[Rfam]
RNA sequence: AAGAGGAGGAACCAUUAUGACGAAGGCAUAAUUUAGCAUGGUUCCGACGAAAUGCCGCCGAACGAAUGUGAGGGGGCGAUACCAAAA
Numbered sequence: 001a002a003g004a005g006g007a008g009g010a011a012c013c014a015u016u017a018u019g020a021c022g023a024a025g026g027c028a029u030a031a032u033u034u035a036g037c038a039u040g041g042u043u044c045c046g047a048c049g050a051a052a053u054g055c056c057g058c059c060g061a062a063c064g065a066a067u068g069u070g071a072g073g074g075g076g077c078g079a080u081a082c083c084a085a086a087a
Stems, first nucleotide, its partner, number of pairs: 008045006015031005054077003058073002062069002

The family of this 87-nucleotide RNA sequence is "GA-cis RNA". It is annotated as a small RNA.